The record is an 87-nucleotide sequence from Trichonephila clavipes, which matches "Selenocysteine transfer RNA" in Rfam.
[Rfam]
RNA sequence: GCCCAGAUGAUCAUCGGUGGUCCGUUGUCCGGGCUUCAAACCCGUAGCUGAUGAGGAGUUUGAGUGGUUCGAUUCCACGUUCUGGGC
Numbered sequence: 001g002c003c004c005a006g007a008u009g010a011u012c013a014u015c016g017g018u019g020g021u022c023c024g025u026u027g028u029c030c031g032g033g034c035u036u037c038a039a040a041c042c043c044g045u046a047g048c049u050g051a052u053g054a055g056g057a058g059u060u061u062g063a064g065u066g067g068u069u070c071g072a073u074u075c076c077a078c079g080u081u082c083u084g085g086g087c
Stems, first nucleotide, its partner, number of pairs: 001087007012027002015024003028046001030044004048062001050060003064078004
Source information
Its Rfam clan is "tRNA clan". A reference for the family is Lowe and Eddy (1997), "tRNAscan-SE: a program for improved detection of transfer RNA genes in genomic sequence", Nucleic Acids Res. The source organism's lineage runs through Eukaryota, Panarthropoda, Chelicerata, Araneae and Trichonephila. The match comes from Rfam's covariance-model search (64 bits).